[Rfam]
RNA sequence: AAAGAACUGCAGGGGGGUCCCGCCUAGGGGACUGAGAGGCUGACAGAAUAGCAAUAUUCGGUGACGCGACCCUUUGAACCUGACCCAGUUGAUACUGGCGUAGGAAGCGAAAAUUUGCGGCAC
Dot-bracket structure: .......(((((((.((((((......)))))..................................)..)))).....((((..((((......))))..))))..)))..............
TPP riboswitch aptamer (THI element): a 123-nucleotide RNA sequence from Maritalea myrionectae. Vitamin B(1) in its active form thiamin pyrophosphate (TPP) is an essential coenzyme that is synthesised by coupling of pyrimidine and thiazole moieties in bacteria. The match comes from Rfam's covariance-model search (59 bits).